[Rfam]
RNA sequence: ACAUUGCAAACUGGUGGUGGGCUCGCUGAAGUGGCCUUGACCAGUCAUGUCCUGAGACAAAUGACCAAAGCCGCCCGGAAAAUCCUGAGGCGGCUUUUUU
Numbered sequence: 001a002c003a004u005u006g007c008a009a010a011c012u013g014g015u016g017g018u019g020g021g022c023u024c025g026c027u028g029a030a031g032u033g034g035c036c037u038u039g040a041c042c043a044g045u046c047a048u049g050u051c052c053u054g055a056g057a058c059a060a061a062u063g064a065c066c067a068a069a070g071c072c073g074c075c076c077g078g079a080a081a082a083u084c085c086u087g088a089g090g091c092g093g094c095u096u097u098u099u100u
Stems, first nucleotide, its partner, number of pairs: 011044005017038001019037004024033003048059004068096008076087003